[Rfam]
RNA: SAM riboswitch aptamer (S box leader)
Organism: Geobacillus sp. WCH70
RNA sequence: UUCUUAUCAAGAGAGGUGGAGGGACUGGCCCAAUGAAGCCCGGCAACCGGUUGUUUCAACAUGAUGCUAAUUCCAGCAGAGCGAAUUGCUCUGAGAGAUAAGAA
Numbered sequence: 001u002u003c004u005u006a007u008c009a010a011g012a013g014a015g016g017u018g019g020a021g022g023g024a025c026u027g028g029c030c031c032a033a034u035g036a037a038g039c040c041c042g043g044c045a046a047c048c049g050g051u052u053g054u055u056u057c058a059a060c061a062u063g064a065u066g067c068u069a070a071u072u073c074c075a076g077c078a079g080a081g082c083g084a085a086u087u088g089c090u091c092u093g094a095g096a097g098a099u100a101a102g103a104a
Base pairs, nucleotide, nucleotide: 001104002103003102004101005100006099007098008097013041015040016039017038021031022030023029025076026075027074028073042068043067044066045065048063049060051058072096077093078092079091080090081089082088